Overview:
This 125-nucleotide RNA belongs to the Rfam family "Flavobacterium-1 RNA".
Nucleotides: 125
Stems, first nucleotide, its partner, number of pairs: 001089005007082003010045004015040002023031002049077002057073002091124004096120004105112002
Number, partner (000 for none) and nucleotide at each position: 001089a002088a003087a004086g005085g006000a007082c008081c009080g010045g011044c012043g013042u014000c015040c016039a017000a018000a019000u020000a021000a022000u023031g024030c025000c026000u027000c028000g029000c030024g031023c032000u033000a034000u035000u036000c037000c038000c039016u040015g041000u042013a043012c044011g045010u046000c047000a048000a049077g050076c051000u052000g053000u054000g055000a056000c057073c058072u059000c060000g061000g062000c063000a064000a065000u066000u067000a068000c069000c070000g071000g072058g073057g074000u075000a076050g077049c078000c079000u080009c081008g082007g083000a084000g085005c086004c087003u088002u089001u090000g091124g092123c093122g094121c095000a096120c097119c098118g099117u100000u101000a102000g103000u104000a105112c106111g107000u108000g109000c110000a111106c112105g113000g114000a115000a116000a117099g118098c119097g120096g121094g122093c123092g124091u125000u